Annotation:
The record is a 103-nucleotide RNA sequence from Alkalihalobacillus trypoxylicola, which matches "S10-Clostridia ribosomal protein leader" in Rfam.
RNA sequence: UGACAGUGAUGAUGCGGAAGGUUGCUGAAACACCCGGCCCCUUUGCCAUGGCAGGGUGGAGGAAAUUUUCGCGGAGCAUGUCUAUUUUAAAAAUGGACGAUAA
Numbered sequence: 001u002g003a004c005a006g007u008g009a010u011g012a013u014g015c016g017g018a019a020g021g022u023u024g025c026u027g028a029a030a031c032a033c034c035c036g037g038c039c040c041c042u043u044u045g046c047c048a049u050g051g052c053a054g055g056g057u058g059g060a061g062g063a064a065a066u067u068u069u070c071g072c073g074g075a076g077c078a079u080g081u082c083u084a085u086u087u088u089a090a091a092a093a094u095g096g097a098c099g100a101u102a103a
Stems, first nucleotide, its partner, number of pairs: 014072003018069004025061002079102004086097003
The source organism's lineage runs through Bacteria, Bacillati, Bacilli, Caryophanales and Alkalihalobacillus. By type it is a cis-regulatory leader.